MIR9563 microRNA precursor family: a 113-nucleotide RNA from Brassica rapa. Lineage of the source: Eukaryota > Gunneridae > rosids > Brassicales > Brassica.
RNA sequence: GAAAAAUAAGAAUUCGUCUCUUAAUUUUUAACUAAAAAGGUUAAGAACCGGCUAUUUAAGAGCCGGUUCUUAGUUUUUUUAGUUAAAAGUUAAGAGAAGGAUUCUUAUAUUCC
Numbered sequence: 001g002a003a004a005a006a007u008a009a010g011a012a013u014u015c016g017u018c019u020c021u022u023a024a025u026u027u028u029u030a031a032c033u034a035a036a037a038a039g040g041u042u043a044a045g046a047a048c049c050g051g052c053u054a055u056u057u058a059a060g061a062g063c064c065g066g067u068u069c070u071u072a073g074u075u076u077u078u079u080u081a082g083u084u085a086a087a088a089g090u091u092a093a094g095a096g097a098a099g100g101a102u103u104c105u106u107a108u109a110u111u112c113c
Stems, first nucleotide, its partner, number of pairs: 001113001003111002006108010017097023041073007